[Rfam]
RNA: Small nucleolar RNA SNORD67
RNA sequence: UGUGAGAGUGAUGAGUGGCACUGAAAAGUUGGCGUGUUGUUGCAGUGGCAACAAAACCCCAAUCCGAACCGCCAUGGGGACACACCAUGUGCACAGGGGCCAUCUGACUCCAC
Numbered sequence: 001u002g003u004g005a006g007a008g009u010g011a012u013g014a015g016u017g018g019c020a021c022u023g024a025a026a027a028g029u030u031g032g033c034g035u036g037u038u039g040u041u042g043c044a045g046u047g048g049c050a051a052c053a054a055a056a057c058c059c060c061a062a063u064c065c066g067a068a069c070c071g072c073c074a075u076g077g078g079g080a081c082a083c084a085c086c087a088u089g090u091g092c093a094c095a096g097g098g099g100c101c102a103u104c105u106g107a108c109u110c111c112a113c
Base pairs, nucleotide, nucleotide: 006110007109008108028064029062030061031060032059034057035056039052040051041050042049043048